[Rfam]
RNA: mir-5729 microRNA precursor family
Organism: Tetranychus urticae
RNA sequence: UUACCCUGACCAUUGGUAAGAGAAGCAAAGGCCAAGGGUGACGACCCUUAGGUCUGCGGAUCGAACCCUGUCAGGGUAG
Numbered sequence: 001u002u003a004c005c006c007u008g009a010c011c012a013u014u015g016g017u018a019a020g021a022g023a024a025g026c027a028a029a030g031g032c033c034a035a036g037g038g039u040g041a042c043g044a045c046c047c048u049u050a051g052g053u054c055u056g057c058g059g060a061u062c063g064a065a066c067c068c069u070g071u072c073a074g075g076g077u078a079g
Base pairs, nucleotide, nucleotide: 002078003077004076005075006074007073008072009071010070015067016066017065020062021061025057026056027055030054031053032052033051034049035048036047037046038045039044